The record is a 179-nucleotide RNA sequence from Raineyella fluvialis, which matches "Actinobacteria sRNA Ms_IGR-5" in Rfam. The source organism's lineage runs through Bacteria, Bacillati, Actinomycetes, Propionibacteriaceae and Raineyella.

[Rfam]
RNA sequence: ACACAGGGAAGGAGGUGGUCCACAUAAUGAAGUCUUCUCGGACCGUUUGUGAGGUGAUCGGCCGCUGAGGCCGACCCAGCCGUAGGACCUCGGUGAAUCCACACCGAUCACCGGACCCGUGGGUGCUGGCAGUGGUCCAGUCAGCAGCGGCGAAGGCUGCAGCCCACGGGUUCUUCCCU
Numbered sequence: 001a002c003a004c005a006g007g008g009a010a011g012g013a014g015g016u017g018g019u020c021c022a023c024a025u026a027a028u029g030a031a032g033u034c035u036u037c038u039c040g041g042a043c044c045g046u047u048u049g050u051g052a053g054g055u056g057a058u059c060g061g062c063c064g065c066u067g068a069g070g071c072c073g074a075c076c077c078a079g080c081c082g083u084a085g086g087a088c089c090u091c092g093g094u095g096a097a098u099c100c101a102c103a104c105c106g107a108u109c110a111c112c113g114g115a116c117c118c119g120u121g122g123g124u125g126c127u128g129g130c131a132g133u134g135g136u137c138c139a140g141u142c143a144g145c146a147g148c149g150g151c152g153a154a155g156g157c158u159g160c161a162g163c164c165c166a167c168g169g170g171u172u173c174u175u176c177c178c179u
Stems, first nucleotide, its partner, number of pairs: 014062001016060004063095007113173011125145006